[Rfam]
RNA: SAM riboswitch aptamer (S box leader)
RNA sequence: AUCUUAUCCAGAGAGGUGGAGGGAUUUGGCCCUUUGAAGCCUCGGCAGCAGACUCAAGCUUUGAGCACUGUGCCAAUUCCAACAAGCGUAUUUGCUUGGCAGAUAAGGA
Dot-bracket structure: .(((((((....(((((...(((..[[[[)))......)))))((((.((..(((.......)))...))))))...(]]]]((((((....))))))..)))))))).